The family of this 146-nucleotide part of an RNA from an uncultured bacterium is "Bacterial small subunit ribosomal RNA". For this family Rfam cites "Crystal structure of the ribosome at 5.5 A resolution" (Yusupov et al., Science, 2001). The family has 99 seed sequences and 42,628 matches in Rfam 15.1. Pairs were carried over by alignment from the consensus structure, which is taken from published work.
RNA sequence: CCGCCCGUCACACCACGAAAGUCGGUUCUACCCGAAGUGGUUGAGCUAACCCGCAAGGGAGGCAGGCUCCUAAGGUAGGGCUGGUAAUUGGGGUGAGAGUCGUAACAAGGUAGCCGUAGGGGAACCUGCGGCUGGAUCACCUCCUU
Numbered sequence: 001c002c003g004c005c006c007g008u009c010a011c012a013c014c015a016c017g018a019a020a021g022u023c024g025g026u027u028c029u030a031c032c033c034g035a036a037g038u039g040g041u042u043g044a045g046c047u048a049a050c051c052c053g054c055a056a057g058g059g060a061g062g063c064a065g066g067c068u069c070c071u072a073a074g075g076u077a078g079g080g081c082u083g084g085u086a087a088u089u090g091g092g093g094u095g096a097g098a099g100u101c102g103u104a105a106c107a108a109g110g111u112a113g114c115c116g117u118a119g120g121g122g123a124a125c126c127u128g129c130g131g132c133u134g135g136a137u138c139a140c141c142u143c144c145u146u
Base pairs, nucleotide, nucleotide: 001109003106006102007101011095012094013093014092016090017089018088021085022084023083024082025081026080027079028078029077030076031075032074037070039068040067041066042065045063046062047061050059051058111134112133113132114131115130116129117128118127119126120125